[Rfam]
RNA sequence: UAUUUUUGCGCCCGUAUUACGAUAGCCGUAGUACAUACAUAACAAUCAUUUACAUAAAUAUUAGCAUG
Numbered sequence: 001u002a003u004u005u006u007u008g009c010g011c012c013c014g015u016a017u018u019a020c021g022a023u024a025g026c027c028g029u030a031g032u033a034c035a036u037a038c039a040u041a042a043c044a045a046u047c048a049u050u051u052a053c054a055u056a057a058a059u060a061u062u063a064g065c066a067u068g
Base pairs, nucleotide, nucleotide: 014034015033016032017031018030019029

The record is a 68-nucleotide RNA, which matches "S15-Flavobacteria ribosomal protein leader" in Rfam. A reference for the family is Eckert and Weinberg (2020), "Discovery of 20 novel ribosomal leader candidates in bacteria and archaea", BMC Microbiol. The base pairs follow the family's consensus structure, which is taken from published work. It is one of the family's seed sequences. Rfam classes the family as a cis-regulatory leader.